[Rfam]
Overview: Rfam assigns this 138-nucleotide RNA from Prunus persica to the family "Small nucleolar RNA snoR74". The literature on the family includes a 2002 paper in Curr Biol by Marker et al., "Experimental RNomics: identification of 140 candidates for small non-messenger RNAs in the plant Arabidopsis thaliana". Lineage of the source: Eukaryota > Magnoliopsida > Rosales > Rosaceae > Prunus. Pairs were carried over by alignment from the consensus structure, which was predicted with WAR.
RNA sequence: AUAAAAGCAGGGCUUAGUUGCCUUAUGUGAACUGAGCUCCCGUAAACUUCAGGGACAUUAACUGCAUUGUUUUUGGGUGAACCUUUGUACUUGCAUCAGUUGCAUGUGACUUAAGGUUCAGUAAAUGAUGGCACAUUU
Dot-bracket structure: ....(((...((.((((..............)))).))........)))...............(((((((......(((((((.............................)))))))...)))))))........
Numbered sequence: 001a002u003a004a005a006a007g008c009a010g011g012g013c014u015u016a017g018u019u020g021c022c023u024u025a026u027g028u029g030a031a032c033u034g035a036g037c038u039c040c041c042g043u044a045a046a047c048u049u050c051a052g053g054g055a056c057a058u059u060a061a062c063u064g065c066a067u068u069g070u071u072u073u074u075g076g077g078u079g080a081a082c083c084u085u086u087g088u089a090c091u092u093g094c095a096u097c098a099g100u101u102g103c104a105u106g107u108g109a110c111u112u113a114a115g116g117u118u119c120a121g122u123a124a125a126u127g128a129u130g131g132c133a134c135a136u137u138u
Stems, first nucleotide, its partner, number of pairs: 005049003011038002014035004065130007078120007

It is annotated as an H/ACA-box small nucleolar RNA.